[Rfam]
RNA sequence: UCCCUGCUUUUCCUCCCUGAGCAGGUGCCUUCACGUGAUGACAGCGUCAAGGCUUUUAAAGCCUCGGCCCUUUGGCCGGGGCUCUUUCUUU
Numbered sequence: 001u002c003c004c005u006g007c008u009u010u011u012c013c014u015c016c017c018u019g020a021g022c023a024g025g026u027g028c029c030u031u032c033a034c035g036u037g038a039u040g041a042c043a044g045c046g047u048c049a050a051g052g053c054u055u056u057u058a059a060a061g062c063c064u065c066g067g068c069c070c071u072u073u074g075g076c077c078g079g080g081g082c083u084c085u086u087u088c089u090u091u
Stems, first nucleotide, its partner, number of pairs: 003025006027053004035047003060083008

Annotation: The family of this 91-nucleotide RNA sequence from Vitreoscilla filiformis is "Burkholderia RNA 7 (anti-hemB)". A search with the family's covariance model found it, with a score of 59 bits. This RNA motif was identified by computational search in b-proteobacteria Burkholderia. Co-purified with Hfq, expression confirmed by Northern blot. The organism belongs to Vitreoscilla, within Bacteria. The literature on the family includes a 2012 paper in BMC Genomics by Khoo et al., "Computational discovery and RT-PCR validation of novel Burkholderia conserved and Burkholderia pseudomallei unique sRNAs".